[Rfam]
RNA sequence: AAUAUUAAAUAUAUAAUCCCUCAUAUACAUUCGGUAAUAUGGGCCGACUGUCUCUACCGGAAAACCGUAAAAAUUCCGACUAUGAGUGGAAUUGUUAUUAAA
Numbered sequence: 001a002a003u004a005u006u007a008a009a010u011a012u013a014u015a016a017u018c019c020c021u022c023a024u025a026u027a028c029a030u031u032c033g034g035u036a037a038u039a040u041g042g043g044c045c046g047a048c049u050g051u052c053u054c055u056a057c058c059g060g061a062a063a064a065c066c067g068u069a070a071a072a073a074u075u076c077c078g079a080c081u082a083u084g085a086g087u088g089g090a091a092u093u094g095u096u097a098u099u100a101a102a
Base pairs, nucleotide, nucleotide: 018088020086021085022084023083024082025081029049031047032046033045034044035043058078059077060076061075062074
This 102-nucleotide RNA sequence from Peptoclostridium litorale belongs to the Rfam family "Purine riboswitch aptamer". A search with the family's covariance model found it, with a score of 85 bits. The source organism's lineage runs through Bacteria, Bacillota, Peptostreptococcales, Peptoclostridiaceae and Peptoclostridium litorale.